The record is a 91-nucleotide RNA sequence from Nesterenkonia natronophila, which matches "Selenocysteine transfer RNA" in Rfam. The match comes from Rfam's covariance-model search (77 bits). Gene Ontology term of the family: triplet codon-amino acid adaptor activity.

[Rfam]
RNA sequence: GGAGGUGUCUGGGUCCUGGUGGGCCCCACGGUCUUCAAAACCGCUGAGACCGAGCACCUCGGUCUGGCGGGUUCGAUUCCCGUCCACCUCC
Numbered sequence: 001g002g003a004g005g006u007g008u009c010u011g012g013g014u015c016c017u018g019g020u021g022g023g024c025c026c027c028a029c030g031g032u033c034u035u036c037a038a039a040a041c042c043g044c045u046g047a048g049a050c051c052g053a054g055c056a057c058c059u060c061g062g063u064c065u066g067g068c069g070g071g072u073u074c075g076a077u078u079c080c081c082g083u084c085c086a087c088c089u090c091c
Stems, first nucleotide, its partner, number of pairs: 001091007011026006029043004047065005068082004